[Rfam]
The record is a 127-nucleotide RNA sequence from Providencia sneebia, which matches "TPP riboswitch aptamer (THI element)" in Rfam. Vitamin B(1) in its active form thiamin pyrophosphate (TPP) is an essential coenzyme that is synthesised by coupling of pyrimidine and thiazole moieties in bacteria.
RNA sequence: AUUUUUGGCUCGGGGCGUCUAUUAUUGACUUAACUCCAUUUAUUUGGAUUAUAGCGGUACAGACUGAGAAGCACCCGUAUUACCUGAUCUGGAUAAUGCCAGCGUAGGGAAGUCGGAAGCGUCUCAA
Numbered sequence: 001a002u003u004u005u006u007g008g009c010u011c012g013g014g015g016c017g018u019c020u021a022u023u024a025u026u027g028a029c030u031u032a033a034c035u036c037c038a039u040u041u042a043u044u045u046g047g048a049u050u051a052u053a054g055c056g057g058u059a060c061a062g063a064c065u066g067a068g069a070a071g072c073a074c075c076c077g078u079a080u081u082a083c084c085u086g087a088u089c090u091g092g093a094u095a096a097u098g099c100c101a102g103c104g105u106a107g108g109g110a111a112g113u114c115g116g117a118a119g120c121g122u123c124u125c126a127a
Stems, first nucleotide, its partner, number of pairs: 006115005011077004016071001017064004083108004089102004